TPP riboswitch aptamer (THI element): a 115-nucleotide sequence from Sodalis glossinidius. Taxonomically the source falls in Sodalis glossinidius (Bacteria, Gammaproteobacteria, Enterobacterales, Bruguierivoracaceae).
[Rfam]
RNA sequence: CCGUUCUCAACGGGGUGCCCAUGCUACCGCCCGCCGCGGUCGGAGUGAGCUGAGAGAAGACCCGUCGAACCUGAUCCGGUUAAUACCGGCGAAGGGAUUUGAGAGUGCGCACUGC
Numbered sequence: 001c002c003g004u005u006c007u008c009a010a011c012g013g014g015g016u017g018c019c020c021a022u023g024c025u026a027c028c029g030c031c032c033g034c035c036g037c038g039g040u041c042g043g044a045g046u047g048a049g050c051u052g053a054g055a056g057a058a059g060a061c062c063c064g065u066c067g068a069a070c071c072u073g074a075u076c077c078g079g080u081u082a083a084u085a086c087c088g089g090c091g092a093a094g095g096g097a098u099u100u101g102a103g104a105g106u107g108c109g110c111a112c113u114g115c
Base pairs, nucleotide, nucleotide: 006103007102008101009100010099011064012063013062014061016058017050018049020047021046070095071094072093076089077088078087079086